MIR6151 microRNA precursor family: a 72-nucleotide RNA sequence from Nicotiana sylvestris. NCBI's taxonomy places the organism under Eukaryota, Gunneridae, asterids, lamiids, Nicotiana. The match comes from Rfam's covariance-model search (80 bits).

[Rfam]
Nucleotides: 072
Stems, first nucleotide, its partner, number of pairs: 004067001006064002009061010020050003024047009
Number, partner (000 for none) and nucleotide at each position: 001000a002000u003000u004067c005000a006064u007063u008000g009061g010060a011059u012058g013057a014056g015055u016054g017053u018052g019000a020050g021049g022048c023000g024047u025046u026045g027044g028043a029042u030041u031040g032039a033000u034000u035000u036000u037000a038000u039032u040031c041030a042029a043028u044027c045026c046025a047024a048022g049021u050020c051000c052018c053017a054016c055015a056014u057013u058012c059011a060010u061009u062000a063007g064006g065000g066000u067004g068000u069000u070000c071000g072000u